[Rfam]
RNA sequence: GAACCUUCACAACACUCUGGCCCUUACCGUUCUCUCCUUGCGAGGUUUGAACUUUACCAUAUGUGGUAUAGGCUUAUUUUAAGUGAAGGAGAGCAACCCCGACCCAUUACUCACCGCGGUAGCCUUGGAGUCCGGCCUUCUGGUUGGGCUUUGUGGCUACAGUGGUCCAUAUACGGGUCUACAU
Numbered sequence: 001g002a003a004c005c006u007u008c009a010c011a012a013c014a015c016u017c018u019g020g021c022c023c024u025u026a027c028c029g030u031u032c033u034c035u036c037c038u039u040g041c042g043a044g045g046u047u048u049g050a051a052c053u054u055u056a057c058c059a060u061a062u063g064u065g066g067u068a069u070a071g072g073c074u075u076a077u078u079u080u081a082a083g084u085g086a087a088g089g090a091g092a093g094c095a096a097c098c099c100c101g102a103c104c105c106a107u108u109a110c111u112c113a114c115c116g117c118g119g120u121a122g123c124c125u126u127g128g129a130g131u132c133c134g135g136c137c138u139u140c141u142g143g144u145u146g147g148g149c150u151u152u153g154u155g156g157c158u159a160c161a162g163u164g165g166u167c168c169a170u171a172u173a174c175g176g177g178u179c180u181a182c183a184u
Stems, first nucleotide, its partner, number of pairs: 007086001019074004025068004030051003101179004114165004119160006

The record is a 184-nucleotide RNA from Penicillium cinerascens, which matches "Small nucleolar RNA snR80" in Rfam. A reference for the family is Schattner et al. (2004), "Genome-wide searching for pseudouridylation guide snoRNAs: analysis of the Saccharomyces cerevisiae genome", Nucleic Acids Res. The source organism's lineage runs through Eukaryota, Opisthokonta, saccharomyceta, Eurotiomycetidae and Penicillium. Gene Ontology terms of the family: RNA processing and nucleolus.